[Rfam]
RNA: Small nucleolar RNA SNORD24
Organism: Coptotermes formosanus
RNA sequence: UGUUUAUGAUGACAUUUGUAUUUGCUAUCUGAGUACUGAAGACACCUUUUACCACCAAGAUCUCUGAGAUA
Numbered sequence: 001u002g003u004u005u006a007u008g009a010u011g012a013c014a015u016u017u018g019u020a021u022u023u024g025c026u027a028u029c030u031g032a033g034u035a036c037u038g039a040a041g042a043c044a045c046c047u048u049u050u051a052c053c054a055c056c057a058a059g060a061u062c063u064c065u066g067a068g069a070u071a
Stems, first nucleotide, its partner, number of pairs: 001071004